RNA sequence: AGAAAGCGAAGAGACAUUUUAUUAUUGUGUCUUUUCAUCAAUGAGGAUCAUUGAGAUACAGUGAAAAUCGAAGGUCGAGAUAUCAUUUCAGUCGUCCUUUUCUUUUGAUUGAUGAUAUGAUUGUUGCUCGUCCACAU
Numbered sequence: 001a002g003a004a005a006g007c008g009a010a011g012a013g014a015c016a017u018u019u020u021a022u023u024a025u026u027g028u029g030u031c032u033u034u035u036c037a038u039c040a041a042u043g044a045g046g047a048u049c050a051u052u053g054a055g056a057u058a059c060a061g062u063g064a065a066a067a068u069c070g071a072a073g074g075u076c077g078a079g080a081u082a083u084c085a086u087u088u089c090a091g092u093c094g095u096c097c098u099u100u101u102c103u104u105u106u107g108a109u110u111g112a113u114g115a116u117a118u119g120a121u122u123g124u125u126g127c128u129c130g131u132c133c134a135c136a137u
Stems, first nucleotide, its partner, number of pairs: 006039001011033006073133002076130004082121004091116006099108002